[Rfam]
RNA sequence: AUCGUCAAUCUGGGGUGCCGUGGCCGGCGGAUGCGUCGGCACGGCUGAGAUCAUACCCAUCGAACCUGAUCCGGGUCAUGCCGGCGAAGGGAGGAUGUUCAGCCAUGUC
Numbered sequence: 001a002u003c004g005u006c007a008a009u010c011u012g013g014g015g016u017g018c019c020g021u022g023g024c025c026g027g028c029g030g031a032u033g034c035g036u037c038g039g040c041a042c043g044g045c046u047g048a049g050a051u052c053a054u055a056c057c058c059a060u061c062g063a064a065c066c067u068g069a070u071c072c073g074g075g076u077c078a079u080g081c082c083g084g085c086g087a088a089g090g091g092a093g094g095a096u097g098u099u100c101a102g103c104c105a106u107g108u109c
Stems, first nucleotide, its partner, number of pairs: 006097002009094002011059004016053001017045005065090003071084004